[Rfam]
RNA sequence: GAUCAAUGGUAAAAAGAGCCAAAUCUGAGUAUCAGAAAACUUACUAGUCUCCCUGAUGUGUGACCUUGGUUUCAGC
Numbered sequence: 001g002a003u004c005a006a007u008g009g010u011a012a013a014a015a016g017a018g019c020c021a022a023a024u025c026u027g028a029g030u031a032u033c034a035g036a037a038a039a040c041u042u043a044c045u046a047g048u049c050u051c052c053c054u055g056a057u058g059u060g061u062g063a064c065c066u067u068g069g070u071u072u073c074a075g076c
Stems, first nucleotide, its partner, number of pairs: 029059005037050001039048002
Shown here is a 76-nucleotide RNA from Crocuta crocuta, a member of the family "Small nucleolar RNA U2-19". Gene Ontology terms of the family: RNA processing and nucleolus. Lineage of the source: Eukaryota > Deuterostomia > Gnathostomata > Hyaenidae > Crocuta. The match comes from Rfam's covariance-model search (54 bits).